Shown here is a 68-nucleotide RNA sequence from Effusibacillus dendaii, a member of the family "Bacillaceae-1 RNA". Pairs were carried over by alignment from the consensus structure, which is taken from published work. The organism belongs to Effusibacillus, within Bacteria.

[Rfam]
RNA sequence: GAUUAAGGAAGGCCGGCUAAAAGUUGUGACAUCCAUGUCACAACGUCGGCACUCCGACAUCCUGUUGU
Number, nucleotide and partner (000 for none) at each position: 001g000002a000003u000004u000005a000006a000007g000008g000009a000010a000011g000012g050013c049014c048015g047016g046017c045018u000019a000020a000021a000022a000023g000024u000025u000026g041027u040028g039029a038030c037031a000032u000033c000034c000035a000036u000037g030038u029039c028040a027041c026042a000043a000044c000045g017046u016047c015048g014049g013050c012051a000052c000053u000054c000055c067056g066057a065058c064059a000060u000061c000062c000063u000064g058065u057066u056067g055068u000